[Rfam]
Nucleotides: 079
Base pairs, nucleotide, nucleotide: 001079002078003077004076005075006074009032010031011030012029037071038070039069040068041067042066043065044064
Number, partner (000 for none) and nucleotide at each position: 001079g002078c003077a004076c005075u006074g007000g008000a009032u010031g011030g012029g013000g014000g015000u016000u017000a018000u019000g020000c021000c022000g023000c024000a025000g026000u027000g028000a029012c030011c031010c032009a033000u034000u035000a036000u037071u038070g039069a040068a041067u042066a043065c044064c045000g046000a047000a048000g049000a050000a051000g052000a053000a054000c055000g056000a057000a058000u059000u060000g061000g062000c063000a064044g065043g066042u067041g068040u069039u070038c071037g072000g073000a074006c075005a076004g077003u078002g079001u